The record is a 70-nucleotide RNA sequence from Pyrenochaeta sp. DS3sAY3a, which matches "bZIP non canonical Hac1/Xbp1 intron" in Rfam. On this family, see Hooks and Griffiths-Jones, RNA Biol 2011: "Conserved RNA structures in the non-canonical Hac1/Xbp1 intron". The family's RNA type in Rfam is small RNA. Rfam describes the family as follows. bZIP intron RNA is a non-canonical intron that was first reported in HAC1 gene in yeast and XBP1 gene in Metazoa.

[Rfam]
RNA sequence: GCCCGAUUUCGACUCGACACAAUAUCCUGCAGCGGUAUUGUGCGACCUGCCGUGUCAGUCGAUUUCGCGC
Numbered sequence: 001g002c003c004c005g006a007u008u009u010c011g012a013c014u015c016g017a018c019a020c021a022a023u024a025u026c027c028u029g030c031a032g033c034g035g036u037a038u039u040g041u042g043c044g045a046c047c048u049g050c051c052g053u054g055u056c057a058g059u060c061g062a063u064u065u066c067g068c069g070c
Stems, first nucleotide, its partner, number of pairs: 001070002004067003010061005021039006044056003